[Rfam]
RNA: mir-187 microRNA precursor family
Organism: Mola mola
Nucleotides: 085
Base pairs, nucleotide, nucleotide: 011078012077015074016073017072018071020069021068022067023066024065025064026063027062028061029060030059032057033056034055035054
Number, partner (000 for none) and nucleotide at each position: 001000u002000u003000g004000g005000c006000u007000g008000g009000u010000c011078c012077a013000g014000g015074g016073g017072c018071u019000g020069c021068a022067a023066c024065a025064c026063a027062g028061g029060a030059c031000a032057u033056g034055g035054g036000u037000c038000c039000u040000g041000c042000g043000u044000g045000u046000c047000c048000c049000c050000c051000c052000u053000g054035c055034u056033c057032g058000u059030g060029u061028c062027u063026u064025g065024u066023g067022u068021u069020g070000c071018a072017g073016c074015c075000a076000g077012u078011g079000g080000a081000g082000c083000u084000g085000c